[Rfam]
RNA sequence: UCCGCUGAAGUUUCCCUUAGGAUAGUAGUGUUAAACUUAGUUUUAUGAGGUAAAGUGAAUAAUUAGGGACUUAGGGGCGCUAUUUAGCCUUUAUUUAUUCUUAAACUUUAAAUAUAUAAGAAGCCCUUGUUUCUUAAUUAAAUGUGGGUAUUCGAAUGAAUUAACACUAGUGGGCUAUUUUUGGUAAGUAGAAUUGGCGAUGUGGGAUAAAUUGAACGCGAGGUUAAGGUGCUAGAGUAGAUGCUUAUCAGAUACUAUAAAAGGUGUUAGUAUAUCUUGAUAGUAGGAUGGUGGCUAUGGAAGUCGGAAUCCGCUAAGGACUAUAUAAUAACUUACCUGCCGAAUAUAUUAGCCCUGAAAAUGGAUGGCGCUUAAGUGUUUUACUUAUACCUUGCCCUUAGGGUAGAAAUAAUGCCCUAAGGAGUAGGCGGACGUGGAGGUUAGUGAUAAAGCCUAGGGCGUGAGCCUGGGUUGAAUGGCCUCUAGUGUAGAU
Numbered sequence: 001u002c003c004g005c006u007g008a009a010g011u012u013u014c015c016c017u018u019a020g021g022a023u024a025g026u027a028g029u030g031u032u033a034a035a036c037u038u039a040g041u042u043u044u045a046u047g048a049g050g051u052a053a054a055g056u057g058a059a060u061a062a063u064u065a066g067g068g069a070c071u072u073a074g075g076g077g078c079g080c081u082a083u084u085u086a087g088c089c090u091u092u093a094u095u096u097a098u099u100c101u102u103a104a105a106c107u108u109u110a111a112a113u114a115u116a117u118a119a120g121a122a123g124c125c126c127u128u129g130u131u132u133c134u135u136a137a138u139u140a141a142a143u144g145u146g147g148g149u150a151u152u153c154g155a156a157u158g159a160a161u162u163a164a165c166a167c168u169a170g171u172g173g174g175c176u177a178u179u180u181u182u183g184g185u186a187a188g189u190a191g192a193a194u195u196g197g198c199g200a201u202g203u204g205g206g207a208u209a210a211a212u213u214g215a216a217c218g219c220g221a222g223g224u225u226a227a228g229g230u231g232c233u234a235g236a237g238u239a240g241a242u243g244c245u246u247a248u249c250a251g252a253u254a255c256u257a258u259a260a261a262a263g264g265u266g267u268u269a270g271u272a273u274a275u276c277u278u279g280a281u282a283g284u285a286g287g288a289u290g291g292u293g294g295c296u297a298u299g300g301a302a303g304u305c306g307g308a309a310u311c312c313g314c315u316a317a318g319g320a321c322u323a324u325a326u327a328a329u330a331a332c333u334u335a336c337c338u339g340c341c342g343a344a345u346a347u348a349u350u351a352g353c354c355c356u357g358a359a360a361a362u363g364g365a366u367g368g369c370g371c372u373u374a375a376g377u378g379u380u381u382u383a384c385u386u387a388u389a390c391c392u393u394g395c396c397c398u399u400a401g402g403g404u405a406g407a408a409a410u411a412a413u414g415c416c417c418u419a420a421g422g423a424g425u426a427g428g429c430g431g432a433c434g435u436g437g438a439g440g441u442u443a444g445u446g447a448u449a450a451a452g453c454c455u456a457g458g459g460c461g462u463g464a465g466c467c468u469g470g471g472u473u474g475a476a477u478g479g480c481c482u483c484u485a486g487u488g489u490a491g492a493u
Stems, first nucleotide, its partner, number of pairs: 001432006011024001013022003027168007041121007053109001054107002060103003065098001067096003072093006079085001123149004128144004174198004179193005203214003218395005224389001228385003237382001239381001242378003262356003266353010283340005289313003295307002314318001319334001324331001396422009433488001435485008444477002452472002458467003